Shown here is a 108-nucleotide sequence from Malus baccata, a member of the family "Small nucleolar RNA Z103". A search with the family's covariance model found it, with a score of 50 bits. Rfam classes the family as a C/D-box small nucleolar RNA. The organism belongs to Malus, within Eukaryota.

[Rfam]
RNA sequence: AUGGAAGUGAUGAUUAUUUGUCCAAAUCAUACAAGUUGAAACAACUCAGCCAAUUAAAUUAUAUCUCUAUAUUACAUAGAGAUACCAAACCAAAUGUAUCUGAUCCAU
Numbered sequence: 001a002u003g004g005a006a007g008u009g010a011u012g013a014u015u016a017u018u019u020g021u022c023c024a025a026a027u028c029a030u031a032c033a034a035g036u037u038g039a040a041a042c043a044a045c046u047c048a049g050c051c052a053a054u055u056a057a058a059u060u061a062u063a064u065c066u067c068u069a070u071a072u073u074a075c076a077u078a079g080a081g082a083u084a085c086c087a088a089a090c091c092a093a094a095u096g097u098a099u100c101u102g103a104u105c106c107a108u
Stems, first nucleotide, its partner, number of pairs: 001108005